[Rfam]
Source information
Nuclear RNase P: a 277-nucleotide RNA sequence from Tenebrio molitor. Pairs were carried over by alignment from the consensus structure, which is taken from published work.
Nucleotides: 277
Base pairs, nucleotide, nucleotide: 001277002276003275004274007271008270009269012235014233015232016231017230021059022058023057024056025055035049036048037047038046039045068261069260070259071258072257078209079208085099086098087097088096089095100114101113102112103111104110115207116206117205118204119203120202121201135193136192236249237248238247239246240245
Number, partner (000 for none) and nucleotide at each position: 001277u002276c003275u004274g005000g006000a007271g008270c009269a010000a011000u012235c013000u014233c015232g016231c017230a018000u019000u020000u021059g022058g023057g024056g025055c026000c027000c028000a029000c030000g031000u032000c033000c034000g035049g036048u037047g038046u039045a040000c041000u042000c043000g044000u045039u046038a047037c048036a049035c050000a051000u052000u053000c054000u055025g056024c057023c058022c059021c060000g061000g062000g063000a064000a065000g066000g067000u068261c069260u070259g071258a072257g073000a074000c075000g076000a077000g078209c079208c080000g081000g082000u083000a084000a085099u086098g087097u088096c089095c090000c091000a092000g093000c094000a095089g096088g097087a098086c099085a100114c101113c102112u103111g104110c105000a106000u107000u108000c109000u110104g111103c112102g113101g114100g115207g116206c117205a118204a119203a120202a121201a122000u123000a124000c125000c126000a127000g128000a129000c130000a131000u132000u133000a134000g135193c136192g137000a138000g139000c140000c141000a142000g143000g144000u145000u146000u147000u148000u149000c150000a151000g152000c153000c154000g155000a156000g157000g158000a159000u160000u161000g162000a163000g164000u165000a166000u167000g168000c169000u170000c171000a172000u173000a174000g175000g176000c177000g178000a179000c180000g181000a182000a183000a184000u185000c186000u187000c188000u189000g190000g191000c192136c193135g194000u195000u196000g197000g198000a199000a200000a201121u202120u203119u204118u205117u206116g207115u208079g209078g210000a211000c212000g213000g214000c215000a216000a217000u218000u219000u220000c221000a222000g223000u224000g225000c226000a227000a228000u229000c230017u231016g232015c233014g234000u235012g236249c237248u238247a239246g240245c241000a242000c243000c244000a245240g246239c247238u248237a249236g250000a251000a252000c253000u254000c255000a256000a257072u258071u259070c260069a261068g262000a263000c264000u265000a266000a267000u268000c269009u270008g271007u272000u273000g274004c275003a276002g277001a